RNA: Gag/pol translational readthrough site
Organism: Mus musculus
RNA sequence: UAGGGAAGACUGGGUUCAGACCUCCUCCCCGAACCCAGGUUAACUCUGAGAGUGGAGGGGAA
Numbered sequence: 001u002a003g004g005g006a007a008g009a010c011u012g013g014g015u016u017c018a019g020a021c022c023u024c025c026u027c028c029c030c031g032a033a034c035c036c037a038g039g040u041u042a043a044c045u046c047u048g049a050g051a052g053u054g055g056a057g058g059g060g061a062a
Stems, first nucleotide, its partner, number of pairs: 008041003012036004016031001019028001022060006